RNA sequence: UCUCGUUCUCAGGGCGGGGUGAAAUUCCCCACCGGCGGUAGGCAGGCAACUGCGAGCCCGCGAGCGCCCCUUCGCACCAGUGGAGGGGGUCAGCAGAUUCGGUCGAAAUCCGAAGCCGACGGUCAUAGUCCGGAUGGAAGAGAACAGCG
Numbered sequence: 001u002c003u004c005g006u007u008c009u010c011a012g013g014g015c016g017g018g019g020u021g022a023a024a025u026u027c028c029c030c031a032c033c034g035g036c037g038g039u040a041g042g043c044a045g046g047c048a049a050c051u052g053c054g055a056g057c058c059c060g061c062g063a064g065c066g067c068c069c070c071u072u073c074g075c076a077c078c079a080g081u082g083g084a085g086g087g088g089g090u091c092a093g094c095a096g097a098u099u100c101g102g103u104c105g106a107a108a109u110c111c112g113a114a115g116c117c118g119a120c121g122g123u124c125a126u127a128g129u130c131c132g133g134a135u136g137g138a139a140g141a142g143a144a145c146a147g148c149g
Stems, first nucleotide, its partner, number of pairs: 003147001005145006017029003031129002033118002035061004056116002064094002098114005120132003
RNA: FMN riboswitch aptamer (RFN element)
Organism: Kaistia hirudinis